This 184-nucleotide RNA sequence from Brassica rapa belongs to the Rfam family "U2 spliceosomal RNA". By type it is a spliceosomal small nuclear RNA. The match comes from Rfam's covariance-model search (130 bits). About the family: U2 is a small nuclear RNA (snRNA) component of the spliceosome (involved in pre-mRNA splicing). Complementary binding between U2 snRNA (in an area lying towards the 5' end but 3' to hairpin I) and the branchpoint sequence (BPS) of the intron results the bulging out of an unpaired adenosine, on the BPS, which initiates a nucleophilic attack at the intronic 5' splice site, thus starting the first of two transesterification reactions that mediate splicing.
[Rfam]
RNA sequence: AUACCUUUCUCGGCCUUUUGGCUAAGAUCAAGUGUAGUAUCUGUUUUUAUCAAUUUAAUAUCUGAUAUGUGGGCCAUCGGUUCACUCGAUAUUAACUCUAUUUUUUUAGGGAGAAAGCCCGUUAAGAUAGCUUGCUAUCUGGGUUUUCACGAAUCGCUAUCUGGGUUUUCACGAAUCGCCCAUG
Numbered sequence: 001a002u003a004c005c006u007u008u009c010u011c012g013g014c015c016u017u018u019u020g021g022c023u024a025a026g027a028u029c030a031a032g033u034g035u036a037g038u039a040u041c042u043g044u045u046u047u048u049a050u051c052a053a054u055u056u057a058a059u060a061u062c063u064g065a066u067a068u069g070u071g072g073g074c075c076a077u078c079g080g081u082u083c084a085c086u087c088g089a090u091a092u093u094a095a096c097u098c099u100a101u102u103u104u105u106u107u108a109g110g111g112a113g114a115a116a117g118c119c120c121g122u123u124a125a126g127a128u129a130g131c132u133u134g135c136u137a138u139c140u141g142g143g144u145u146u147u148c149a150c151g152a153a154u155c156g157c158u159a160u161c162u163g164g165g166u167u168u169u170c171a172c173g174a175a176u177c178g179c180c181c182a183u184g
Stems, first nucleotide, its partner, number of pairs: 008027003012023004048067005069085007113148008127138004160184001162182004